About this RNA
tRNA: an 86-nucleotide RNA from Crucibulum laeve.

[Rfam]
RNA sequence: CCUUCGAUAGCUCAGUUGGAAGAGCGUGGGACUGUAAUGGAUACUGUAUCAUCCCGAGGUCACUGGUUCGAUCCCGGUUCGAAGGA
Numbered sequence: 001c002c003u004u005c006g007a008u009a010g011c012u013c014a015g016u017u018g019g020a021a022g023a024g025c026g027u028g029g030g031a032c033u034g035u036a037a038u039g040g041a042u043a044c045u046g047u048a049u050c051a052u053c054c055c056g057a058g059g060u061c062a063c064u065g066g067u068u069c070g071a072u073c074c075c076g077g078u079u080c081g082a083a084g085g086a
Base pairs, nucleotide, nucleotide: 001085002084003083004082005081006080007079010025011024012023013022027056028055029054030053031052062078063077064076065075066074

A reference for the family is Hou (1993), "The tertiary structure of tRNA and the development of the genetic code", Trends Biochem Sci.